A member of the RNA family "Alpha operon ribosome binding site" from Plesiomonas shigelloides, 110 nucleotides long. Rfam describes the family as follows. The bacterial alpha operon ribosome binding site is surrounded by this complex pseudoknotted structure. Translation of the mRNA produces 4 ribosomal protein products, one of which (S4) acts as a translational repressor by binding to the nested pseudoknot region. The mechanism of repression is thought to involve a conformational switch in the pseudoknot region and ribosome entrapment. The family's RNA type in Rfam is cis-regulatory element.

RNA sequence: AGUUGGUAUGGUCAUUUGGGUAUCCUGAAAACGGGCUUUUCAGAUUGGCCUACCAGUAUAUAAAUUUAGGAGUGCAUAUGGCCCGUAUUGCAGGCAUUAACAUUCCUGAU
Numbered sequence: 001a002g003u004u005g006g007u008a009u010g011g012u013c014a015u016u017u018g019g020g021u022a023u024c025c026u027g028a029a030a031a032c033g034g035g036c037u038u039u040u041c042a043g044a045u046u047g048g049c050c051u052a053c054c055a056g057u058a059u060a061u062a063a064a065u066u067u068a069g070g071a072g073u074g075c076a077u078a079u080g081g082c083c084c085g086u087a088u089u090g091c092a093g094g095c096a097u098u099a100a101c102a103u104u105c106c107u108g109a110u
Stems, first nucleotide, its partner, number of pairs: 004055004010050004024094003032085004040109003

Gene Ontology term of the family: ribosome binding.